[Rfam]
RNA sequence: UUAGUCAACGGUCAGCGUUUUGUGCCGAUCCAUUCAACGAGAAUUUAAGGAGUUGACUAAUUCACCAAC
Numbered sequence: 001u002u003a004g005u006c007a008a009c010g011g012u013c014a015g016c017g018u019u020u021u022g023u024g025c026c027g028a029u030c031c032a033u034u035c036a037a038c039g040a041g042a043a044u045u046u047a048a049g050g051a052g053u054u055g056a057c058u059a060a061u062u063c064a065c066c067a068a069c
Stems, first nucleotide, its partner, number of pairs: 001060009
The family of this 69-nucleotide sequence from Pseudogracilibacillus auburnensis is "Bacillus-plasmid RNA".
The family has 31 seed sequences and 155 matches in Rfam 15.1.
By type it is a small RNA.
Lineage of the source: Bacteria > Bacillota > Bacilli > Caryophanales > Pseudogracilibacillus.
A search with the family's covariance model found it, with a score of 36 bits.